A member of the RNA family "Qrr RNA" from Vibrio antiquarius, 109 nucleotides long. It is one of the family's seed sequences. Gene Ontology term of the family: quorum sensing. About the family: This family represents a set of small RNAs (the Qrr RNAs) that are thought to be involved in the regulation of quorum sensing in Vibrio species. It is believed that these RNAs, guided by a protein, Hfq, can mediate the destabilisation of the quorum-sensing master regulators LuxR/HapR mRNAs. By type it is a small RNA. Rfam 15.1 lists 148 matches to the family in 70 species.
RNA sequence: UGACCCUUUCUAAGCCGAGGGUCACCUAGCCAACUGACGUUGUUAGUGAACCACUUUGUUCACAAAUAUAUACAGCCAAUCACGAAUCCUUGUGGUUGGCUUUUUUUAU
Numbered sequence: 001u002g003a004c005c006c007u008u009u010c011u012a013a014g015c016c017g018a019g020g021g022u023c024a025c026c027u028a029g030c031c032a033a034c035u036g037a038c039g040u041u042g043u044u045a046g047u048g049a050a051c052c053a054c055u056u057u058g059u060u061c062a063c064a065a066a067u068a069u070a071u072a073c074a075g076c077c078a079a080u081c082a083c084g085a086a087u088c089c090u091u092g093u094g095g096u097u098g099g100c101u102u103u104u105u106u107u108a109u
Stems, first nucleotide, its partner, number of pairs: 001024006041072003046063006076099008